[Rfam]
Rfam assigns this 227-nucleotide sequence from Candidatus Psychracetigena formicireducens to the family "HNH endonuclease-associated RNA and ORF (HEARO) RNA".
RNA sequence: GUCAAUCACCCAGCCCUGAAGGACAGGGCUUGCACCGUGAGGAGCAAGGGUAACUGGUUGACUAGGAGGCAUAAGAAAAAUAUGCAGAAGUUAGAGGAAAGAAAUACAUACACACCCACGAAUAUUCCGCACGUUUGUGGCAACUGCGGCUUGGUAUUAAAUGUAGAGGAAACUCUCAGUGUAUCAGGCUUAAAAACUUCUUCUAACAACUCCGAUGCGGCUCUAAC
Numbered sequence: 001g002u003c004a005a006u007c008a009c010c011c012a013g014c015c016c017u018g019a020a021g022g023a024c025a026g027g028g029c030u031u032g033c034a035c036c037g038u039g040a041g042g043a044g045c046a047a048g049g050g051u052a053a054c055u056g057g058u059u060g061a062c063u064a065g066g067a068g069g070c071a072u073a074a075g076a077a078a079a080a081u082a083u084g085c086a087g088a089a090g091u092u093a094g095a096g097g098a099a100a101g102a103a104a105u106a107c108a109u110a111c112a113c114a115c116c117c118a119c120g121a122a123u124a125u126u127c128c129g130c131a132c133g134u135u136u137g138u139g140g141c142a143a144c145u146g147c148g149g150c151u152u153g154g155u156a157u158u159a160a161a162u163g164u165a166g167a168g169g170a171a172a173c174u175c176u177c178a179g180u181g182u183a184u185c186a187g188g189c190u191u192a193a194a195a196a197c198u199u200c201u202u203c204u205a206a207c208a209a210c211u212c213c214g215a216u217g218c219g220g221c222u223c224u225a226a227c
Base pairs, nucleotide, nucleotide: 001062002061003060004059005058006057007056008055010028011027013024015022016021029048030047031046032045065213066212067211068210070084071083072082073081090207091206092205093204094203095202096201097200098199099198113146116140117139118138119137120136121135122134123133127220128219129218130217131216149189150188151187152186153185154184155183156182157181161180162179165176166175167174168173
Lineage of the source: Bacteria > Bacillati > Candidatus Lithacetigenota > Candidatus Psychracetigena. A search with the family's covariance model found it, with a score of 102 bits.